Shown here is an 81-nucleotide RNA sequence from Myotis lucifugus, a member of the family "mir-574 microRNA precursor family". Its family is annotated with RISC complex and miRNA-mediated post-transcriptional gene silencing in the Gene Ontology. Its Rfam clan is "mir-574 microRNA precursor clan". A search with the family's covariance model found it, with a score of 84 bits.
RNA sequence: AGACCCAAAGAGAGAGACAGGGUCUGAUCCACAGCCUCUGUGGAAGAUGUUGAUCAGCCAUUGCCUCUCUCUUUUUCUCCG
Numbered sequence: 001a002g003a004c005c006c007a008a009a010g011a012g013a014g015a016g017a018c019a020g021g022g023u024c025u026g027a028u029c030c031a032c033a034g035c036c037u038c039u040g041u042g043g044a045a046g047a048u049g050u051u052g053a054u055c056a057g058c059c060a061u062u063g064c065c066u067c068u069c070u071c072u073u074u075u076u077c078u079c080c081g
Stems, first nucleotide, its partner, number of pairs: 008073009018063003022059001024057006032049002035046001